[Rfam]
RNA sequence: CGCCUAAACCUUAUAAUUCUAUAAGGCAUGGCACAAAAACUCGGUAAGAGAUAUUAAGCUCGUCGUCAGAGCAACUCUUACCGAGUCAUAAUCCGAAAGGGUUAUGGGUAGCCGAAAGGUUAUC
Numbered sequence: 001c002g003c004c005u006a007a008a009c010c011u012u013a014u015a016a017u018u019c020u021a022u023a024a025g026g027c028a029u030g031g032c033a034c035a036a037a038a039a040c041u042c043g044g045u046a047a048g049a050g051a052u053a054u055u056a057a058g059c060u061c062g063u064c065g066u067c068a069g070a071g072c073a074a075c076u077c078u079u080a081c082c083g084a085g086u087c088a089u090a091a092u093c094c095g096a097a098a099g100g101g102u103u104a105u106g107g108g109u110a111g112c113c114g115a116a117a118g119g120u121u122a123u124c
Base pairs, nucleotide, nucleotide: 002032003031004030009026010025011024012023013022014021015020040085041084042083043082044081045080046079047078048077049076050075058072059071060070087106088105089104090103091102092101093100094099107124108123109122110121111120112119
RNA: LOOT RNA